[Rfam]
Record summary
The family of this 106-nucleotide RNA sequence from Capsicum baccatum is "Plant small nucleolar RNA R71". A search with the family's covariance model found it, with a score of 43 bits. The family has 25 seed sequences and 278,378 matches in Rfam 15.1. On this family, see Brown et al., Trends Plant Sci 2003: "Plant snoRNAs: functional evolution and new modes of gene expression". Its family is annotated with nucleolus and RNA processing in the Gene Ontology.
RNA sequence: AUCUCAUGGUUAAGUCACUUCAAGAGAUUCUCCUUCAAUCUUCCCCAAGCUUCAUACCACGGUUCUUCAUGGAAUUGGCAGAAAUUAACAAUUUCAUCCUGAAGUU
Numbered sequence: 001a002u003c004u005c006a007u008g009g010u011u012a013a014g015u016c017a018c019u020u021c022a023a024g025a026g027a028u029u030c031u032c033c034u035u036c037a038a039u040c041u042u043c044c045c046c047a048a049g050c051u052u053c054a055u056a057c058c059a060c061g062g063u064u065c066u067u068c069a070u071g072g073a074a075u076u077g078g079c080a081g082a083a084a085u086u087a088a089c090a091a092u093u094u095c096a097u098c099c100u101g102a103a104g105u106u
Stems, first nucleotide, its partner, number of pairs: 001106001003104002005101002060071001